[Rfam]
RNA sequence: CCUAGAGGACGACCUCAAGGACGACGUCUAGGGGACCUCGAGGACGACCUCA
Numbered sequence: 001c002c003u004a005g006a007g008g009a010c011g012a013c014c015u016c017a018a019g020g021a022c023g024a025c026g027u028c029u030a031g032g033g034g035a036c037c038u039c040g041a042g043g044a045c046g047a048c049c050u051c052a
Stems, first nucleotide, its partner, number of pairs: 001020003005016004040051004
Rfam assigns this 52-nucleotide RNA sequence from Ixodes scapularis to the family "Guanidine-II riboswitch aptamer (mini-ykkC)".
About the family: Simpler in structure and has fewer highly conserved nucleotide positions than the ykkC-yxkD leader.
The family's consensus secondary structure is taken from published work.
It scores 33 bits against the family's covariance model.
NCBI's taxonomy places the organism under Eukaryota, Bilateria, Panarthropoda, Arachnida, Ixodes.
A reference for the family is Weinberg et al. (2007), "Identification of 22 candidate structured RNAs in bacteria using the CMfinder comparative genomics pipeline", Nucleic Acids Res.